[Rfam]
RNA: Wolbachia sRNA 46
Organism: Trichonephila clavata
RNA sequence: UUGAUUUAUUCCAAUAAUGGUGUCAUUCCAGUGCGUGACACUGGAAUCCAGAUAUAAAAGUAUUUGCAAAUUAUUCAAUGGACAACGGAUUCUAGAAGCAUAAAAUAAUGUCCAUGAUGAAAUAAACUGGAUCCCAGUGUCACGCACUGGGAUGACAUGAGGGAAGCACUGGGAUGA
Numbered sequence: 001u002u003g004a005u006u007u008a009u010u011c012c013a014a015u016a017a018u019g020g021u022g023u024c025a026u027u028c029c030a031g032u033g034c035g036u037g038a039c040a041c042u043g044g045a046a047u048c049c050a051g052a053u054a055u056a057a058a059a060g061u062a063u064u065u066g067c068a069a070a071u072u073a074u075u076c077a078a079u080g081g082a083c084a085a086c087g088g089a090u091u092c093u094a095g096a097a098g099c100a101u102a103a104a105a106u107a108a109u110g111u112c113c114a115u116g117a118u119g120a121a122a123u124a125a126a127c128u129g130g131a132u133c134c135c136a137g138u139g140u141c142a143c144g145c146a147c148u149g150g151g152a153u154g155a156c157a158u159g160a161g162g163g164a165a166g167c168a169c170u171g172g173g174a175u176g177a
Stems, first nucleotide, its partner, number of pairs: 011172003015168001021157024046132006